[Rfam]
RNA sequence: CCCGCGGUCAGACGGAAAGACCCCGUGCACCUUUACUACAGCUUGACAGUGGUAUUAGCGAUUAUUUGUGUAGGAUAGGCGGGAGUCUAUGAAACCAGGGCGCCAGUUCUGGUGGAGACAUCCUUGAAAUACCGCCCUGAUGAUUGUUGAUAUCUAACCGCGGCCCAUGAACCUGGGUCCGGGACCCUGUCUGGUGGGUAGUUUGACUGGGGCGGUCGCCUCCCAAAGAGUAACGGAGGCGCGCGAUGGUGGGCUCAGAGCGGUCGGAAAUCGCUCGUUGAGUGCAAUGGCAUAAGCCCGCCUGACUGUGAGACUGACAGGUCGAGCAGAGUCGAAAGACGGCCAUAGUGAUCCGGUGGUCCCGCAUGGAAGGGCCAUCGCUCAACGGAUAAAAGGUACGCCGGGGAUAACAGGCUGAUGAUGCCCAAGAGUCCAUAUCGACGGCAUUGUUUGGCACCUCGAUGUCGGCUCAUCGCAUCCUGGGGCUGGAGCAGGUCCCAAGGGUUUGGCUGUUCGCCAAUUAAAGCGGUACGUGAGCUGGGUUUAGAACGUCGUGAGACAGUUCGGUCCCUAUCUGCCGUGGGUGUC
Numbered sequence: 001c002c003c004g005c006g007g008u009c010a011g012a013c014g015g016a017a018a019g020a021c022c023c024c025g026u027g028c029a030c031c032u033u034u035a036c037u038a039c040a041g042c043u044u045g046a047c048a049g050u051g052g053u054a055u056u057a058g059c060g061a062u063u064a065u066u067u068g069u070g071u072a073g074g075a076u077a078g079g080c081g082g083g084a085g086u087c088u089a090u091g092a093a094a095c096c097a098g099g100g101c102g103c104c105a106g107u108u109c110u111g112g113u114g115g116a117g118a119c120a121u122c123c124u125u126g127a128a129a130u131a132c133c134g135c136c137c138u139g140a141u142g143a144u145u146g147u148u149g150a151u152a153u154c155u156a157a158c159c160g161c162g163g164c165c166c167a168u169g170a171a172c173c174u175g176g177g178u179c180c181g182g183g184a185c186c187c188u189g190u191c192u193g194g195u196g197g198g199u200a201g202u203u204u205g206a207c208u209g210g211g212g213c214g215g216u217c218g219c220c221u222c223c224c225a226a227a228g229a230g231u232a233a234c235g236g237a238g239g240c241g242c243g244c245g246a247u248g249g250u251g252g253g254c255u256c257a258g259a260g261c262g263g264u265c266g267g268a269a270a271u272c273g274c275u276c277g278u279u280g281a282g283u284g285c286a287a288u289g290g291c292a293u294a295a296g297c298c299c300g301c302c303u304g305a306c307u308g309u310g311a312g313a314c315u316g317a318c319a320g321g322u323c324g325a326g327c328a329g330a331g332u333c334g335a336a337a338g339a340c341g342g343c344c345a346u347a348g349u350g351a352u353c354c355g356g357u358g359g360u361c362c363c364g365c366a367u368g369g370a371a372g373g374g375c376c377a378u379c380g381c382u383c384a385a386c387g388g389a390u391a392a393a394a395g396g397u398a399c400g401c402c403g404g405g406g407a408u409a410a411c412a413g414g415c416u417g418a419u420g421a422u423g424c425c426c427a428a429g430a431g432u433c434c435a436u437a438u439c440g441a442c443g444g445c446a447u448u449g450u451u452u453g454g455c456a457c458c459u460c461g462a463u464g465u466c467g468g469c470u471c472a473u474c475g476c477a478u479c480c481u482g483g484g485g486c487u488g489g490a491g492c493a494g495g496u497c498c499c500a501a502g503g504g505u506u507u508g509g510c511u512g513u514u515c516g517c518c519a520a521u522u523a524a525a526g527c528g529g530u531a532c533g534u535g536a537g538c539u540g541g542g543u544u545u546a547g548a549a550c551g552u553c554g555u556g557a558g559a560c561a562g563u564u565c566g567g568u569c570c571c572u573a574u575c576u577g578c579c580g581u582g583g584g585u586g587u588c
Stems, first nucleotide, its partner, number of pairs: 001584008010576003014571002022405004027401002029397005035202004042194002045191004051154016068137001078136005085119003094113008158182003162179006205217004218240006241386001243343002249301006255281002258276006282291002306329004312323003331340003354380007362373002414455003418452001419449007429439002466541001467539004471533001472530005479504002482499006506520005547565004551560003
Shown here is a 588-nucleotide part of an RNA from Maricaulis maris, a member of the family "Bacterial large subunit ribosomal RNA".
Lineage of the source: Bacteria > Alphaproteobacteria > Maricaulales > Maricaulis > Maricaulis maris.
Pairs were carried over by alignment from the consensus structure, which is taken from published work.